[Rfam]
This 72-nucleotide RNA from Spodoptera littoralis belongs to the Rfam family "mir-10 microRNA precursor family". Its family is annotated with miRNA-mediated post-transcriptional gene silencing and RISC complex in the Gene Ontology. Lineage of the source: Eukaryota > Opisthokonta > Pterygota > Heteroneura > Spodoptera. The base pairs follow the family's consensus structure, which was predicted with PFOLD. A search with the family's covariance model found it, with a score of 54 bits.
RNA sequence: CGUGAUCUACCCUGUAGAUCCGGGCUUUUGUGAUUUACGCAUCAGAAGCUCGUUUCUACAGGUAGCUCACGA
Numbered sequence: 001c002g003u004g005a006u007c008u009a010c011c012c013u014g015u016a017g018a019u020c021c022g023g024g025c026u027u028u029u030g031u032g033a034u035u036u037a038c039g040c041a042u043c044a045g046a047a048g049c050u051c052g053u054u055u056c057u058a059c060a061g062g063u064a065g066c067u068c069a070c071g072a
Stems, first nucleotide, its partner, number of pairs: 002070004007065001010062002016057003021052010